RNA sequence: CUCUUAGAGCGUGUCAGAAGCUUAAUCCCUAAUGGGGGUUAGGACAGAACACUUUAAAAGGAUGCACACUCCUUAGAUGAAAAUCUAAAAAACUAAACAGGCGGCAUAGCUGAGUAGCAAUAGCGAAAACUUAUGCCGCUU
Numbered sequence: 001c002u003c004u005u006a007g008a009g010c011g012u013g014u015c016a017g018a019a020g021c022u023u024a025a026u027c028c029c030u031a032a033u034g035g036g037g038g039u040u041a042g043g044a045c046a047g048a049a050c051a052c053u054u055u056a057a058a059a060g061g062a063u064g065c066a067c068a069c070u071c072c073u074u075a076g077a078u079g080a081a082a083a084u085c086u087a088a089a090a091a092a093c094u095a096a097a098c099a100g101g102c103g104g105c106a107u108a109g110c111u112g113a114g115u116a117g118c119a120a121u122a123g124c125g126a127a128a129a130c131u132u133a134u135g136c137c138g139c140u141u
Stems, first nucleotide, its partner, number of pairs: 004057006013050002021043008075086004099141011111129001117124002
RNA: RT-14 RNA